[Rfam]
RNA: FMN riboswitch aptamer (RFN element)
Organism: Acetobacter orleanensis
RNA sequence: UGACGUUCUCAGGGCAGGGUGAAAAUCCCUACCGGCGGUAAGUAACGGUUUUCCGUUAUAAGCCCGCGAGCGCCUGCUUCGGCAGGGUCAGCAGAUCCGGUGUAAUUCCGGAGCCGACGGUUACAGUCCGGAUGAGAGAGAACGGUG
Numbered sequence: 001u002g003a004c005g006u007u008c009u010c011a012g013g014g015c016a017g018g019g020u021g022a023a024a025a026u027c028c029c030u031a032c033c034g035g036c037g038g039u040a041a042g043u044a045a046c047g048g049u050u051u052u053c054c055g056u057u058a059u060a061a062g063c064c065c066g067c068g069a070g071c072g073c074c075u076g077c078u079u080c081g082g083c084a085g086g087g088u089c090a091g092c093a094g095a096u097c098c099g100g101u102g103u104a105a106u107u108c109c110g111g112a113g114c115c116g117a118c119g120g121u122u123a124c125a126g127u128c129c130g131g132a133u134g135a136g137a138g139a140g141a142a143c144g145g146u147g
Base pairs, nucleotide, nucleotide: 004144005143006142007141008140009139010138017029018028019027031127032126033116034115035067036066037065038064062114063113070092071091096112097111098110099109100108118130119129120128